[Rfam]
RNA sequence: CGCUUAUUUUGCCCAGGCGGAGCUCGACCGCCGAUGGAAGCCAUGAUCCGCUUUGUCGAUGCGUACCGCGAUGAGCACGGGGUCGAGCCGAUCUGCCGCGUACUGGCGAUUGCCCCG
Numbered sequence: 001c002g003c004u005u006a007u008u009u010u011g012c013c014c015a016g017g018c019g020g021a022g023c024u025c026g027a028c029c030g031c032c033g034a035u036g037g038a039a040g041c042c043a044u045g046a047u048c049c050g051c052u053u054u055g056u057c058g059a060u061g062c063g064u065a066c067c068g069c070g071a072u073g074a075g076c077a078c079g080g081g082g083u084c085g086a087g088c089c090g091a092u093c094u095g096c097c098g099c100g101u102a103c104u105g106g107c108g109a110u111u112g113c114c115c116c117g
Stems, first nucleotide, its partner, number of pairs: 016032005078117005089112002092109002096105001098103001